[Rfam]
The record is a 44-nucleotide RNA from Mesorhizobium zhangyense, which matches "Guanidine-II riboswitch aptamer (mini-ykkC)" in Rfam. The match comes from Rfam's covariance-model search (37 bits). NCBI's taxonomy places the organism under Bacteria, Pseudomonadati, Pseudomonadota, Phyllobacteriaceae, Mesorhizobium.

RNA sequence: UGCAGGACGACCUGCGCUUCCAAAAUCAUCCGGGGACGGCCCCA
Numbered sequence: 001u002g003c004a005g006g007a008c009g010a011c012c013u014g015c016g017c018u019u020c021c022a023a024a025a026u027c028a029u030c031c032g033g034g035g036a037c038g039g040c041c042c043c044a
Base pairs, nucleotide, nucleotide: 001016002015003014004013005012006011032043033042034041035040